[Rfam]
Notes: Shown here is a 394-nucleotide RNA sequence from Syntrophotalea acetylenica, a member of the family "Bacterial RNase P class A". Taxonomically the source falls in Syntrophotalea (Bacteria, Thermodesulfobacteriota, Desulfuromonadia, Syntrophotaleaceae). The match comes from Rfam's covariance-model search (302 bits). Ribonuclease P (RNase P) is a ubiquitous endoribonuclease, found in archaea, bacteria and eukarya as well as chloroplasts and mitochondria.
RNA sequence: AAAGAAAGCCAGGUGAUCGCCGGCCUGCCCCGCUGAGGCGGAGGUGGGCGGGAGGAAAGUCCGGGCUCCGCAGGGCAGGAUGGUUCCUAACGGGAACCGGGGGCGACCCCAGGGAAAGUGCCACAGAAAGUAAACCGCCCGCAACGCCUCGGCAAGGCGGGUAAGGGUGAAACGGUGAGGUAAGAGCUCACCAGUUCCGGCGGUGACGCCGGAAGCUCGGUAAACCCCAUCCGGAGCAAGGCCAAAUAGGGAAGUGUUUGAGGGCGGCCCGCCCGAGACUUCCGGGUUGGCUGCUUGAGGCCGCCGGCGACGGCGGUCCUAGAGGAAUGAUCAUCGCCCUGCAUGCGGGUAACCGGUGCGGGGAACAGGACCCGGCUUACGGCUCUCUUUGGCC
Numbered sequence: 001a002a003a004g005a006a007a008g009c010c011a012g013g014u015g016a017u018c019g020c021c022g023g024c025c026u027g028c029c030c031c032g033c034u035g036a037g038g039c040g041g042a043g044g045u046g047g048g049c050g051g052g053a054g055g056a057a058a059g060u061c062c063g064g065g066c067u068c069c070g071c072a073g074g075g076c077a078g079g080a081u082g083g084u085u086c087c088u089a090a091c092g093g094g095a096a097c098c099g100g101g102g103g104c105g106a107c108c109c110c111a112g113g114g115a116a117a118g119u120g121c122c123a124c125a126g127a128a129a130g131u132a133a134a135c136c137g138c139c140c141g142c143a144a145c146g147c148c149u150c151g152g153c154a155a156g157g158c159g160g161g162u163a164a165g166g167g168u169g170a171a172a173c174g175g176u177g178a179g180g181u182a183a184g185a186g187c188u189c190a191c192c193a194g195u196u197c198c199g200g201c202g203g204u205g206a207c208g209c210c211g212g213a214a215g216c217u218c219g220g221u222a223a224a225c226c227c228c229a230u231c232c233g234g235a236g237c238a239a240g241g242c243c244a245a246a247u248a249g250g251g252a253a254g255u256g257u258u259u260g261a262g263g264g265c266g267g268c269c270c271g272c273c274c275g276a277g278a279c280u281u282c283c284g285g286g287u288u289g290g291c292u293g294c295u296u297g298a299g300g301c302c303g304c305c306g307g308c309g310a311c312g313g314c315g316g317u318c319c320u321a322g323a324g325g326a327a328u329g330a331u332c333a334u335c336g337c338c339c340u341g342c343a344u345g346c347g348g349g350u351a352a353c354c355g356g357u358g359c360g361g362g363g364a365a366c367a368g369g370a371c372c373c374g375g376c377u378u379a380c381g382g383c384u385c386u387c388u389u390u391g392g393c394c
Stems, first nucleotide, its partner, number of pairs: 001390005007384004012335007020052002023049006057378003061375005066236004073270004078232005083097005098112001099110004113227002118225002120221003135166002137162006174192006194216001195214008240292004250283006262274004299318008
Dot-bracket structure: (((((.((((.(((((((.((.((((((...............)))))).))....[[[.[[[[[((((...[[[[.((((((((((.....)))))(((((....)))).)((...(((((............((((((((..............))))))..)).......((((((.......)))))).(((((((((....)))))))).)..)))..)))))))))))))...((((......((((((......((((.]]]]))))...)))))).....))))......((((((((....))))))))..........)))))))...................................]]]]]]]]..)))).)))))....